[Rfam]
RNA sequence: UCGAAUGAUGAACAAGCAUUUUUGGUGUGUUUCAUCAUUUAUAUACAAAUUUACAAGAGGCAAAGUAAUAUCGGCGAGAUAUCGUUUCGGUCGUCAUAUAUUAAGAUUGACGAUUCGAUUGUUGCUCGUCUACAU
Number, nucleotide and partner (000 for none) at each position: 001u043002c000003g000004a000005a038006u037007g036008a035009u034010g033011a032012a031013c000014a000015a000016g000017c000018a000019u000020u000021u000022u000023u000024g000025g000026u000027g000028u000029g000030u000031u012032u011033c010034a009035u008036c007037a006038u005039u000040u000041a000042u000043a001044u000045a000046c000047a000048a000049a000050u000051u000052u000053a000054c000055a000056a000057g000058a000059g000060g000061c000062a000063a000064a000065g000066u000067a000068a000069u000070a000071u000072c000073g130074g000075c128076g127077a126078g125079a000080u000081a119082u118083c117084g116085u000086u000087u000088c000089g000090g114091u113092c112093g111094u110095c109096a108097u000098a000099u105100a000101u000102u000103a000104a000105g099106a000107u000108u096109g095110a094111c093112g092113a091114u090115u000116c084117g083118a082119u081120u000121g000122u000123u000124g000125c078126u077127c076128g075129u000130c073131u000132a000133c000134a000135u000
Rfam assigns this 135-nucleotide RNA from Nicotiana tabacum to the family "Small nucleolar RNA snoR111". Rfam 15.1 lists 533 matches to the family in 223 species. Its family is annotated with RNA processing and nucleolus in the Gene Ontology. It scores 82 bits against the family's covariance model. Rfam classes the family as an H/ACA-box small nucleolar RNA.